[Rfam]
RNA sequence: GUGGGCAGAGGGGUGGGGCCCGGGACUCAUAGUCAUGUGGGGACUGUUGUUGAAUCCCUACUCUUGUUCUGAGCACCACCCCUCUCUCAG
Numbered sequence: 001g002u003g004g005g006c007a008g009a010g011g012g013g014u015g016g017g018g019c020c021c022g023g024g025a026c027u028c029a030u031a032g033u034c035a036u037g038u039g040g041g042g043a044c045u046g047u048u049g050u051u052g053a054a055u056c057c058c059u060a061c062u063c064u065u066g067u068u069c070u071g072a073g074c075a076c077c078a079c080c081c082c083u084c085u086c087u088c089a090g
Stems, first nucleotide, its partner, number of pairs: 002089004008084009018074002021071006037061003041057003045053001

Overview
Shown here is a 90-nucleotide sequence from Peromyscus maniculatus, a member of the family "mir-3547 microRNA precursor family". Rfam 15.1 lists 8 matches to the family in 8 species. It scores 78 bits against the family's covariance model. The family's consensus secondary structure was predicted with RNAalifold.